[Rfam]
RNA sequence: UUAAAUACAUCCUAUGUUAUUGUUCAAC
Numbered sequence: 001u002u003a004a005a006u007a008c009a010u011c012c013u014a015u016g017u018u019a020u021u022g023u024u025c026a027a028c
Base pairs, nucleotide, nucleotide: 007017008016009015010014